[Rfam]
RNA sequence: GUAUCUAUUGACAACACUCUCAUUUGCAUUCCUUGGGAACAUCUGAACAAAAUGAGUCAGAAUUCACUACUGUUUCCUCACUGACAGUGAGUUCC
Numbered sequence: 001g002u003a004u005c006u007a008u009u010g011a012c013a014a015c016a017c018u019c020u021c022a023u024u025u026g027c028a029u030u031c032c033u034u035g036g037g038a039a040c041a042u043c044u045g046a047a048c049a050a051a052a053u054g055a056g057u058c059a060g061a062a063u064u065c066a067c068u069a070c071u072g073u074u075u076c077c078u079c080a081c082u083g084a085c086a087g088u089g090a091g092u093u094c095c
Base pairs, nucleotide, nucleotide: 001095003093005091028057029056030055031054033050034049035048
RNA: Small nucleolar RNA SNORD116
Organism: Moschus moschiferus